[Rfam]
RNA: Bacterial RNase P class A
RNA sequence: UCAGGUGGUUGGAUGAUCGCUCUUUUGCUGGUAACGGCUUGAGGGAGGAAAGUCCGGGCUUCAUGGAUAUACGGUGCCGGAUAACGUCCGGCGAGGGUGACCUUAGGGAAAGUGCCACAGAAAGCAAACCUCCACACAAGCUUCGGCGUAACGUGUGGUAAGGGUGAAAGGGUGCGGUAAGAGCGCACCGCCCGCCUAGCAAUAGGAGGGGCACGGUAAACCCCACCGGGAGCAAGACCGAAUAGGGAUGGACGGCGGAUUAAACGGGCCGCAGAUGUAUAUUCACAUCACGCAUCCGGGUGUGUCGCGCGAGGCAUUUGGCAACAAAUGUCCCAGACGAAUGAUCAUCUAUCCUGCUUUUGCAGGGGGACAGAACCCGGCUUACAGACCACCUGACUUA
Numbered sequence: 001u002c003a004g005g006u007g008g009u010u011g012g013a014u015g016a017u018c019g020c021u022c023u024u025u026u027g028c029u030g031g032u033a034a035c036g037g038c039u040u041g042a043g044g045g046a047g048g049a050a051a052g053u054c055c056g057g058g059c060u061u062c063a064u065g066g067a068u069a070u071a072c073g074g075u076g077c078c079g080g081a082u083a084a085c086g087u088c089c090g091g092c093g094a095g096g097g098u099g100a101c102c103u104u105a106g107g108g109a110a111a112g113u114g115c116c117a118c119a120g121a122a123a124g125c126a127a128a129c130c131u132c133c134a135c136a137c138a139a140g141c142u143u144c145g146g147c148g149u150a151a152c153g154u155g156u157g158g159u160a161a162g163g164g165u166g167a168a169a170g171g172g173u174g175c176g177g178u179a180a181g182a183g184c185g186c187a188c189c190g191c192c193c194g195c196c197u198a199g200c201a202a203u204a205g206g207a208g209g210g211g212c213a214c215g216g217u218a219a220a221c222c223c224c225a226c227c228g229g230g231a232g233c234a235a236g237a238c239c240g241a242a243u244a245g246g247g248a249u250g251g252a253c254g255g256c257g258g259a260u261u262a263a264a265c266g267g268g269c270c271g272c273a274g275a276u277g278u279a280u281a282u283u284c285a286c287a288u289c290a291c292g293c294a295u296c297c298g299g300g301u302g303u304g305u306c307g308c309g310c311g312a313g314g315c316a317u318u319u320g321g322c323a324a325c326a327a328a329u330g331u332c333c334c335a336g337a338c339g340a341a342u343g344a345u346c347a348u349c350u351a352u353c354c355u356g357c358u359u360u361u362g363c364a365g366g367g368g369g370a371c372a373g374a375a376c377c378c379g380g381c382u383u384a385c386a387g388a389c390c391a392c393c394u395g396a397c398u399u400a
Stems, first nucleotide, its partner, number of pairs: 001396010011385001012349007020045005027038002050383003054380005059232004067283001072228005077091005092106001093104004107223002112221002114217003129163002132158006171189006190212001191210003195206004236306003246297005274289005313332008